Record summary:
A member of the RNA family "BsrG", 270 nucleotides long.

[Rfam]
RNA sequence: UACAUAGACUCGGCUCUCUCAAGGGUGGUCGGCUCACCUCGCUUUACCCUAUCUAUAGGGAAGGGGGUGAGAAUAUGACGGUAUAUGAGGCAAUUUCACUAAUGAUAGCUUUUGGCAUGCUGAUAAUUGCCCUACUGUCCUUCCCUAGACGGAAAUAGACCUCCCUUGAGCUAACGACCCUGGGAAGUCCAUUUCUUCAGUAAGUCCUUUUGAGCCACCCCUUUGAAGGGAUAGUCUUUGUACAAACCGUGGGUGUUACCAGCACCUGCG
Number, nucleotide and partner (000 for none) at each position: 001u242002a241003c240004a239005u000006a000007g236008a235009c234010u000011c000012g216013g215014c214015u213016c212017u000018c170019u169020c168021a167022a166023g165024g164025g163026u000027g160028g000029u158030c000031g000032g000033c000034u070035c069036a068037c000038c067039u066040c065041g000042c000043u000044u000045u000046a000047c000048c000049c000050u000051a000052u000053c000054u000055a000056u000057a000058g000059g000060g000061a000062a000063g000064g000065g040066g039067g038068u036069g035070a034071g000072a000073a000074u000075a000076u000077g139078a138079c137080g136081g135082u134083a133084u000085a000086u000087g000088a000089g000090g000091c104092a103093a000094u000095u000096u000097c000098a000099c000100u000101a000102a000103u092104g091105a000106u000107a000108g000109c000110u000111u000112u000113u000114g131115g130116c129117a128118u000119g000120c000121u000122g000123a000124u000125a000126a000127u000128u117129g116130c115131c114132c000133u083134a082135c081136u080137g079138u078139c077140c000141u000142u000143c000144c000145c000146u000147a000148g000149a000150c000151g000152g000153a000154a000155a000156u000157a000158g029159a000160c027161c000162u000163c025164c024165c023166u022167u021168g020169a019170g018171c000172u000173a000174a000175c000176g000177a000178c000179c000180c200181u199182g198183g000184g000185a000186a000187g000188u000189c000190c000191a000192u000193u000194u000195c000196u000197u000198c182199a181200g180201u000202a000203a000204g000205u000206c000207c000208u000209u000210u000211u000212g016213a015214g014215c013216c012217a000218c000219c230220c229221c228222u000223u000224u000225g000226a000227a000228g221229g220230g219231a000232u000233a000234g009235u008236c007237u000238u000239u004240g003241u002242a001243c000244a000245a000246a000247c000248c270249g269250u268251g267252g266253g265254u264255g263256u262257u261258a000259c000260c000261a257262g256263c255264a254265c253266c252267u251268g250269c249270g248
It is annotated as a small RNA.